The family of this 205-nucleotide RNA from Acinonyx jubatus is "Small nucleolar RNA SNORA73 family". On this family, see Enright et al., RNA 1996: "5'ETS rRNA processing facilitated by four small RNAs: U14, E3, U17, and U3". It scores 109 bits against the family's covariance model. The organism belongs to Acinonyx, within Eukaryota. U17 (SNORA73A and SNORA73B) also known as E1 belongs to the H/ACA class of small nucleolar RNAs (snoRNAs). Vertebrate U17 is intron-encoded and ranges in length from 200-230 nucleotides, longer than most snoRNAs. It is one of the most abundant snoRNAs in human cells and is essential for the cleavage of pre-rRNA within the 5' external transcribed spacer (ETS). Clan: snR30-U17 clan.
[Rfam]
RNA sequence: CCAACGUGGACACUCCUGGGAGGUCACUGUCCCUGGGCACUGUCCAGGUGCCACAGAGGAGACUGGGGCUCUGUCCUGUGAUGUACAGUGCUUUUCCACAAUGGUGGUGAUAGAGCUGGACCUUGAGUCUGCACCUGUAUAUUCUUACAGUUUCUUGGUGAUCUGUGUACGAUGACCGAAGAGGUAAAUCACACAGGCAACAUCU
Numbered sequence: 001c002c003a004a005c006g007u008g009g010a011c012a013c014u015c016c017u018g019g020g021a022g023g024u025c026a027c028u029g030u031c032c033c034u035g036g037g038c039a040c041u042g043u044c045c046a047g048g049u050g051c052c053a054c055a056g057a058g059g060a061g062a063c064u065g066g067g068g069c070u071c072u073g074u075c076c077u078g079u080g081a082u083g084u085a086c087a088g089u090g091c092u093u094u095u096c097c098a099c100a101a102u103g104g105u106g107g108u109g110a111u112a113g114a115g116c117u118g119g120a121c122c123u124u125g126a127g128u129c130u131g132c133a134c135c136u137g138u139a140u141a142u143u144c145u146u147a148c149a150g151u152u153u154c155u156u157g158g159u160g161a162u163c164u165g166u167g168u169a170c171g172a173u174g175a176c177c178g179a180a181g182a183g184g185u186a187a188a189u190c191a192c193a194c195a196g197g198c199a200a201c202a203u204c205u
Stems, first nucleotide, its partner, number of pairs: 001107003005103003008045005015037003019030001021028002048099003057092002060089001061086001064083002066079001134197005140191001151183003155179002160170001163167001